The record is a 139-nucleotide RNA from Chanos chanos, which matches "Small nucleolar RNA SNORD10" in Rfam.
RNA sequence: GUUUCGUGAUGAUCCCCAUGCGUGUCAACUGACCCCAGAAUCCUCACCAGGCAUCGGUGUCCAGUGGGCGUUCUGCUUCCUGGUACACUAGCGCCUGUCGAGCUCUGGGGCAAUGAUCAGAGAUUUAAUGGCUGAAAAC
Numbered sequence: 001g002u003u004u005c006g007u008g009a010u011g012a013u014c015c016c017c018a019u020g021c022g023u024g025u026c027a028a029c030u031g032a033c034c035c036c037a038g039a040a041u042c043c044u045c046a047c048c049a050g051g052c053a054u055c056g057g058u059g060u061c062c063a064g065u066g067g068g069c070g071u072u073c074u075g076c077u078u079c080c081u082g083g084u085a086c087a088c089u090a091g092c093g094c095c096u097g098u099c100g101a102g103c104u105c106u107g108g109g110g111c112a113a114u115g116a117u118c119a120g121a122g123a124u125u126u127a128a129u130g131g132c133u134g135a136a137a138a139c
Base pairs, nucleotide, nucleotide: 001139002138003137004136043102044101045100048097049096050095051094
The base pairs follow the family's consensus structure, which was predicted with WAR. NCBI's taxonomy places the organism under Eukaryota, Eumetazoa, Bilateria, Clupeocephala, Chanos.